[Rfam]
RNA sequence: GUGCGGAUGGUGUCAACCGGACGCGACAGGGAUGGUGAACAUUGCGGUUUUUCCGGUUUCCCGCCGUCGCCGACGCAACGGCAGUCGAGCGCCCAACCUGUCUCGACC
Numbered sequence: 001g002u003g004c005g006g007a008u009g010g011u012g013u014c015a016a017c018c019g020g021a022c023g024c025g026a027c028a029g030g031g032a033u034g035g036u037g038a039a040c041a042u043u044g045c046g047g048u049u050u051u052u053c054c055g056g057u058u059u060c061c062c063g064c065c066g067u068c069g070c071c072g073a074c075g076c077a078a079c080g081g082c083a084g085u086c087g088a089g090c091g092c093c094c095a096a097c098c099u100g101u102c103u104c105g106a107c108c
Stems, first nucleotide, its partner, number of pairs: 006107001008105002011023004025102006034093004041067002044064003069082003
RNA: Rhizobiales sRNA Atu_At1